A member of the RNA family "Burkholderia RNA 11" from Giesbergeria anulus, 122 nucleotides long. By type it is a small RNA. Gene Ontology term of the family: protein binding. On this family, see Ramos et al., Genomics 2013: "Experimental identification of small non-coding regulatory RNAs in the opportunistic human pathogen Burkholderia cenocepacia J2315". NCBI's taxonomy places the organism under Bacteria, Pseudomonadati, Pseudomonadota, Burkholderiales, Giesbergeria.
RNA sequence: GCAACCUCAAGCUGGCGCACGGCAACAUCGUGGUGUUUCGCUCCUUGCUGGGCAUCAGUUGGAUGUGGUUCUUUGGCGCGGUGUUUUUGGCACAGUUUCCUAGCUUUGCCCGCGAUGUACUG
Numbered sequence: 001g002c003a004a005c006c007u008c009a010a011g012c013u014g015g016c017g018c019a020c021g022g023c024a025a026c027a028u029c030g031u032g033g034u035g036u037u038u039c040g041c042u043c044c045u046u047g048c049u050g051g052g053c054a055u056c057a058g059u060u061g062g063a064u065g066u067g068g069u070u071c072u073u074u075g076g077c078g079c080g081g082u083g084u085u086u087u088u089g090g091c092a093c094a095g096u097u098u099c100c101u102a103g104c105u106u107u108g109c110c111c112g113c114g115a116u117g118u119a120c121u122g
Stems, first nucleotide, its partner, number of pairs: 010049003014044002017041002021037004026032001051121002054118002060112003063105001067099002071095002074092002077089002080087002